[Rfam]
Shown here is a 133-nucleotide sequence from Ursus americanus, a member of the family "ODC internal ribosome entry site (IRES)". The match comes from Rfam's covariance-model search (97 bits). Lineage of the source: Eukaryota > Eumetazoa > Chordata > Ursidae > Ursus. The literature on the family includes a 2005 paper in Cell Mol Life Sci by Pyronnet et al., "Alternative splicing facilitates internal ribosome entry on the ornithine decarboxylase mRNA". Rfam 15.1 lists 437 matches to the family in 128 species.

RNA sequence: ACUUCCACUAAUGCACCGAGGGCACAUACAUCUUCAAUGGCACUUGGAAUUCUGGAGAAUUGCCUUUGUGAAAAACUGGCAAUAAUUUCUUUCAGUUCCAUGUCUUAGUUUUCCAUGGGAACAUCACGAAACC
Numbered sequence: 001a002c003u004u005c006c007a008c009u010a011a012u013g014c015a016c017c018g019a020g021g022g023c024a025c026a027u028a029c030a031u032c033u034u035c036a037a038u039g040g041c042a043c044u045u046g047g048a049a050u051u052c053u054g055g056a057g058a059a060u061u062g063c064c065u066u067u068g069u070g071a072a073a074a075a076c077u078g079g080c081a082a083u084a085a086u087u088u089c090u091u092u093c094a095g096u097u098c099c100a101u102g103u104c105u106u107a108g109u110u111u112u113c114c115a116u117g118g119g120a121a122c123a124u125c126a127c128g129a130a131a132c133c
Stems, first nucleotide, its partner, number of pairs: 006079001012074001016070001017068008026060002039053002042051001086131004091126001096121004